[Rfam]
RNA: Archaeal signal recognition particle RNA
Organism: Haloferax volcanii
RNA sequence: GGACUAGGUCGGGCAGUUAGGCCCUGCUCUUCACCCGCGAAAUAGGUCUUUAGCGGGGACCGAACACGGGCGCGUCCGGUCAGACCGGCGCGGGCCCCGGAAGCCAACGUAGAAACCUCGUCCUUCGGGGACAGCGGUUCCGCGUACCCCUUCCGCAGGGAAGGGUUCGCGCGGUUUAUCGGUGGUACCCCGCCAGGCGCGGAAGCGAGCAGCGGACCAUCGGACGUGCGUCGCUCGAGGGAUCGCGGGGUGGAGGAGGCAACCGGGAUUCCCCACGUCGGAACGCCGGGCAACCUCGCUGUCCAC
Numbered sequence: 001g002g003a004c005u006a007g008g009u010c011g012g013g014c015a016g017u018u019a020g021g022c023c024c025u026g027c028u029c030u031u032c033a034c035c036c037g038c039g040a041a042a043u044a045g046g047u048c049u050u051u052a053g054c055g056g057g058g059a060c061c062g063a064a065c066a067c068g069g070g071c072g073c074g075u076c077c078g079g080u081c082a083g084a085c086c087g088g089c090g091c092g093g094g095c096c097c098c099g100g101a102a103g104c105c106a107a108c109g110u111a112g113a114a115a116c117c118u119c120g121u122c123c124u125u126c127g128g129g130g131a132c133a134g135c136g137g138u139u140c141c142g143c144g145u146a147c148c149c150c151u152u153c154c155g156c157a158g159g160g161a162a163g164g165g166u167u168c169g170c171g172c173g174g175u176u177u178a179u180c181g182g183u184g185g186u187a188c189c190c191c192g193c194c195a196g197g198c199g200c201g202g203a204a205g206c207g208a209g210c211a212g213c214g215g216a217c218c219a220u221c222g223g224a225c226g227u228g229c230g231u232c233g234c235u236c237g238a239g240g241g242a243u244c245g246c247g248g249g250g251u252g253g254a255g256g257a258g259g260c261a262a263c264c265g266g267g268a269u270u271c272c273c274c275a276c277g278u279c280g281g282a283a284c285g286c287c288g289g290g291c292a293a294c295c296u297c298g299c300u301g302u303c304c305a306c
Stems, first nucleotide, its partner, number of pairs: 001304004007061004011029006034057005067298004074291004078286001085281006093274002096267005103260003108255001110253001115251007122241008130232003134227003137177001140174004146167001148165007179223007190215004198207003